Rfam assigns this 365-nucleotide RNA sequence from Variibacter gotjawalensis to the family "Alphaproteobacteria transfer-messenger RNA".
Rfam describes the family as follows. Bacterial tmRNA, also known as 10Sa RNA or SsrA, is named for its dual tRNA and mRNA-like properties.
Gene Ontology term of the family: RNA catabolic process.
RNA sequence: GCUCUUCCUUCGGCCACGAUCUGUCCCUAUAUUCCGAAGCGUCGGCGCAAGCCGACUAUGGUGAUAAACGGCCGUUGCAAUAAGCCAUUCGGACCCGGGGGCAGUACCCGGCGCCUCCACCAAAGCCCAGAAGCGUUCCAAGGUCUGGGUUUUGGCGGGGGCGAAAUAGGAUCGACGAGGGUGUAAAGAGCGCGCUUUUGCCCGGCAUGGUAUCCGCCGAUAUCGGGCCAUUCGCAUAGUUGCCAAUGACAACUACGCUCCGGUUGCUCAGGCUGCGUAACGCAGUUUGAAAUACCGAAAUUAAGCCCUAACGCUUAGCCGCGUUAGGCGGGGUUCGGAGGCACCUGGCAACAGAAGCCUCCACU
Numbered sequence: 001g002c003u004c005u006u007c008c009u010u011c012g013g014c015c016a017c018g019a020u021c022u023g024u025c026c027c028u029a030u031a032u033u034c035c036g037a038a039g040c041g042u043c044g045g046c047g048c049a050a051g052c053c054g055a056c057u058a059u060g061g062u063g064a065u066a067a068a069c070g071g072c073c074g075u076u077g078c079a080a081u082a083a084g085c086c087a088u089u090c091g092g093a094c095c096c097g098g099g100g101g102c103a104g105u106a107c108c109c110g111g112c113g114c115c116u117c118c119a120c121c122a123a124a125g126c127c128c129a130g131a132a133g134c135g136u137u138c139c140a141a142g143g144u145c146u147g148g149g150u151u152u153u154g155g156c157g158g159g160g161g162c163g164a165a166a167u168a169g170g171a172u173c174g175a176c177g178a179g180g181g182u183g184u185a186a187a188g189a190g191c192g193c194g195c196u197u198u199u200g201c202c203c204g205g206c207a208u209g210g211u212a213u214c215c216g217c218c219g220a221u222a223u224c225g226g227g228c229c230a231u232u233c234g235c236a237u238a239g240u241u242g243c244c245a246a247u248g249a250c251a252a253c254u255a256c257g258c259u260c261c262g263g264u265u266g267c268u269c270a271g272g273c274u275g276c277g278u279a280a281c282g283c284a285g286u287u288u289g290a291a292a293u294a295c296c297g298a299a300a301u302u303a304a305g306c307c308c309u310a311a312c313g314c315u316u317a318g319c320c321g322c323g324u325u326a327g328g329c330g331g332g333g334u335u336c337g338g339a340g341g342c343a344c345c346u347g348g349c350a351a352c353a354g355a356a357g358c359c360u361c362c363a364c365u
Base pairs, nucleotide, nucleotide: 041056042055043054044053045052060202061201062200063199064198070195072194073192074191075190076189085181086180089178090177091176095111096110097109098108099107112163113162114161115160116159117158118157203219204218205217206216208230209229210228213226214225331346332345333344334343337362338361339360340359341358342357